[Rfam]
This 112-nucleotide RNA from Actinomyces glycerinitolerans belongs to the Rfam family "Actinomyces-1 RNA". The base pairs follow the family's consensus structure, which is taken from published work.
RNA sequence: CCUGCCGCCGGACGGUGCGGGUCGCGAGGGUUGGGGACCCCGAAGACCGAACCGCCACCGAGAACCAGGCCGGGUACAUGGGAGCCCGCCCCGGUACGCUCCGGCGCAGGAG
Numbered sequence: 001c002c003u004g005c006c007g008c009c010g011g012a013c014g015g016u017g018c019g020g021g022u023c024g025c026g027a028g029g030g031u032u033g034g035g036g037a038c039c040c041c042g043a044a045g046a047c048c049g050a051a052c053c054g055c056c057a058c059c060g061a062g063a064a065c066c067a068g069g070c071c072g073g074g075u076a077c078a079u080g081g082g083a084g085c086c087c088g089c090c091c092c093g094g095u096a097c098g099c100u101c102c103g104g105c106g107c108a109g110g111a112g
Base pairs, nucleotide, nucleotide: 006106007105008104009103010102011101012100013060014059015058016057018054019053020052022050023049024048028041029040030039032037062097063095065093068091071088072087073086074085075084

It scores 81 bits against the family's covariance model.